[Rfam]
RNA sequence: GGACCCGUAGCUCAGUUGGUUAGAGCUACCGGCUCAUAACCGGUCGGUCGUUGGUUCGAGUCCAACCGGGUCCA
Numbered sequence: 001g002g003a004c005c006c007g008u009a010g011c012u013c014a015g016u017u018g019g020u021u022a023g024a025g026c027u028a029c030c031g032g033c034u035c036a037u038a039a040c041c042g043g044u045c046g047g048u049c050g051u052u053g054g055u056u057c058g059a060g061u062c063c064a065a066c067c068g069g070g071u072c073c074a
Stems, first nucleotide, its partner, number of pairs: 001073007010026004028044005050066005